[Rfam]
RNA sequence: ACAAUAAUUGCCGGCAAAAUGUGGGAAAACCUUAAUGAAUAAACGGGUUUUCCCACAUUUUGCCGGCAAUAAUUAUU
Numbered sequence: 001a002c003a004a005u006a007a008u009u010g011c012c013g014g015c016a017a018a019a020u021g022u023g024g025g026a027a028a029a030c031c032u033u034a035a036u037g038a039a040u041a042a043a044c045g046g047g048u049u050u051u052c053c054c055a056c057a058u059u060u061u062g063c064c065g066g067c068a069a070u071a072a073u074u075a076u077u
Stems, first nucleotide, its partner, number of pairs: 005072001007070015023054009
A member of the RNA family "mir-31 microRNA precursor family" from Apolygus lucorum, 77 nucleotides long. The literature on the family includes a 2003 paper in Dev Cell by Aravin et al., "The small RNA profile during Drosophila melanogaster development". NCBI's taxonomy places the organism under Eukaryota, Mandibulata, Insecta, Mirinae, Apolygus. The family's consensus secondary structure was predicted with RNAalifold. Rfam links the family to the GO terms RISC complex and gene silencing by miRNA.